Record summary:
This 263-nucleotide part of an RNA from Granulicella sp. WH15 belongs to the Rfam family "Bacterial large subunit ribosomal RNA". NCBI's taxonomy places the organism under Bacteria, Pseudomonadati, Acidobacteriota, Terriglobia, Granulicella.
RNA sequence: GGAGAUUUGAAGAGGGCUGUCCUUAGUACGAGAGGACCGGGAUGGACGAACCUCUUGUGUUCCAGUUGUCCUGCCAAGGGCACGGCUGGGUAGCGAAGUUCGGUUGUGAUAACCGCUGAAUGCAUAUAAGCGGGAAGCACGCUCUAAGAUGAGAUCUCCCAACCCAAAAGGGUAAUGAAGGGCCCAGGAAGACCACCUGGUUGAUAGGCUGGAGGUUGAAGCGCAGUAAUGCGUGUAGCUUACCAGUACUAAUCGCCCGUUCG
Numbered sequence: 001g002g003a004g005a006u007u008u009g010a011a012g013a014g015g016g017c018u019g020u021c022c023u024u025a026g027u028a029c030g031a032g033a034g035g036a037c038c039g040g041g042a043u044g045g046a047c048g049a050a051c052c053u054c055u056u057g058u059g060u061u062c063c064a065g066u067u068g069u070c071c072u073g074c075c076a077a078g079g080g081c082a083c084g085g086c087u088g089g090g091u092a093g094c095g096a097a098g099u100u101c102g103g104u105u106g107u108g109a110u111a112a113c114c115g116c117u118g119a120a121u122g123c124a125u126a127u128a129a130g131c132g133g134g135a136a137g138c139a140c141g142c143u144c145u146a147a148g149a150u151g152a153g154a155u156c157u158c159c160c161a162a163c164c165c166a167a168a169a170g171g172g173u174a175a176u177g178a179a180g181g182g183c184c185c186a187g188g189a190a191g192a193c194c195a196c197c198u199g200g201u202u203g204a205u206a207g208g209c210u211g212g213a214g215g216u217u218g219a220a221g222c223g224c225a226g227u228a229a230u231g232c233g234u235g236u237a238g239c240u241u242a243c244c245a246g247u248a249c250u251a252a253u254c255g256c257c258c259g260u261u262c263g
Stems, first nucleotide, its partner, number of pairs: 001159008011145004017045007047102005055096003062089005067082006106140003113133005162173003177260001180258004184200005205251003208247005213241003221234005